[Rfam]
RNA sequence: CGUGUGGUGUUCAGCGUUGAGCUGUAUAGCGACACGGCCUAUAUAUGAGGU
Numbered sequence: 001c002g003u004g005u006g007g008u009g010u011u012c013a014g015c016g017u018u019g020a021g022c023u024g025u026a027u028a029g030c031g032a033c034a035c036g037g038c039c040u041a042u043a044u045a046u047g048a049g050g051u
Stems, first nucleotide, its partner, number of pairs: 001036005007030002012024004
RNA: L31-Gammaproteobacteria ribosomal protein leader
Organism: Vibrio ishigakensis